A member of the RNA family "Glycine riboswitch aptamer" from Rhodoferax ferrireducens, 141 nucleotides long.
The match comes from Rfam's covariance-model search (51 bits).
Its family is annotated with glycine biosynthetic process in the Gene Ontology.
RNA sequence: CGAUUCCCCACUGGAGAGAGGUCACCGCCGGCGCUUGGGUGCUGCGGCUGAUCCACCGAAGGAGCAACCCGCAGUCUGUCAGCCAGCAUGGCAUGCACAGGCGCGGCGAAUCUCUCAGGUAAAGCGGACAGCGGGGGCAGC
Number, nucleotide and partner (000 for none) at each position: 001c000002g000003a000004u000005u000006c136007c135008c134009c133010a000011c131012u130013g129014g000015a000016g000017a000018g000019a000020g053021g052022u051023c050024a000025c000026c000027g000028c000029c000030g000031g000032c000033g000034c000035u000036u000037g000038g000039g000040u000041g000042c000043u000044g000045c000046g000047g000048c000049u000050g023051a022052u021053c020054c000055a120056c119057c118058g116059a115060a000061g000062g114063a113064g112065c000066a000067a000068c000069c106070c105071g104072c103073a000074g000075u000076c000077u000078g000079u000080c000081a000082g000083c000084c000085a000086g000087c000088a000089u000090g000091g000092c000093a000094u000095g000096c000097a000098c000099a000100g000101g000102c000103g072104c071105g070106g069107c000108g000109a000110a000111u000112c064113u063114c062115u059116c058117a000118g057119g056120u055121a000122a000123a000124g000125c000126g000127g000128a000129c013130a012131g011132c000133g009134g008135g007136g006137g000138c000139a000140g000141c000